L31-Firmicutes ribosomal protein leader: a 34-nucleotide sequence. Clan: Ribosomal Protein L31 Leader clan.
[Rfam]
RNA sequence: CUUUGAAUUGAUCAGAAAUUCAAGGCGGAAGGAG
Numbered sequence: 001c002u003u004u005g006a007a008u009u010g011a012u013c014a015g016a017a018a019u020u021c022a023a024g025g026c027g028g029a030a031g032g033a034g
Base pairs, nucleotide, nucleotide: 001025002024003023004022005021006020007019008018